Background
Rfam assigns this 82-nucleotide sequence from Cavia porcellus to the family "small Cajal body-specific RNA 18".
RNA sequence: UGGCCAAUGUGACCAGGCCACUGCGCAAUCUUGUGUUCUGGGAACCAGGUGUUGAGCGUGUUGUAACAUCAGAAAGAGGCUG
Numbered sequence: 001u002g003g004c005c006a007a008u009g010u011g012a013c014c015a016g017g018c019c020a021c022u023g024c025g026c027a028a029u030c031u032u033g034u035g036u037u038c039u040g041g042g043a044a045c046c047a048g049g050u051g052u053u054g055a056g057c058g059u060g061u062u063g064u065a066a067c068a069u070c071a072g073a074a075a076g077a078g079g080c081u082g
Base pairs, nucleotide, nucleotide: 002081003080004079005078038048039047040046041045
Rfam links the family to the GO terms Cajal body, nucleolus and RNA processing.